[Rfam]
RNA sequence: UGUUUUGAAUUUAAUGUAAUUUUAAUUGGUACUAGAUAGGUGCUUUUUUUAAUUCUUACUUGUAAGUCUUUUAUAAAUAAAGCAAGAAAUUGGUACGACCGAGUGGACUCGAACCACCGACCCCUACCA
Numbered sequence: 001u002g003u004u005u006u007g008a009a010u011u012u013a014a015u016g017u018a019a020u021u022u023u024a025a026u027u028g029g030u031a032c033u034a035g036a037u038a039g040g041u042g043c044u045u046u047u048u049u050u051a052a053u054u055c056u057u058a059c060u061u062g063u064a065a066g067u068c069u070u071u072u073a074u075a076a077a078u079a080a081a082g083c084a085a086g087a088a089a090u091u092g093g094u095a096c097g098a099c100c101g102a103g104u105g106g107a108c109u110c111g112a113a114c115c116a117c118c119g120a121c122c123c124c125u126a127c128c129a
Stems, first nucleotide, its partner, number of pairs: 015042003021036004059066002091126003100119002103117004